[Rfam]
Rfam assigns this 119-nucleotide sequence to the family "Streptomyces-metH RNA".
RNA sequence: CCGUCCGCCUCGUGGGACACCGUGUCCACCCCGGCCCGAGCGCGGUUACGCUGGCUCCGUGCACCCUCCACCGAGCGUGCAAAGCCGACAGCCGUCGCAUCCCAGGGAGAUAGCCCAUG
Numbered sequence: 001c002c003g004u005c006c007g008c009c010u011c012g013u014g015g016g017a018c019a020c021c022g023u024g025u026c027c028a029c030c031c032c033g034g035c036c037c038g039a040g041c042g043c044g045g046u047u048a049c050g051c052u053g054g055c056u057c058c059g060u061g062c063a064c065c066c067u068c069c070a071c072c073g074a075g076c077g078u079g080c081a082a083a084g085c086c087g088a089c090a091g092c093c094g095u096c097g098c099a100u101c102c103c104a105g106g107g108a109g110a111u112a113g114c115c116c117a118u119g
Stems, first nucleotide, its partner, number of pairs: 060081004066075003084098002087096003
A search with the family's covariance model found it, with a score of 98 bits.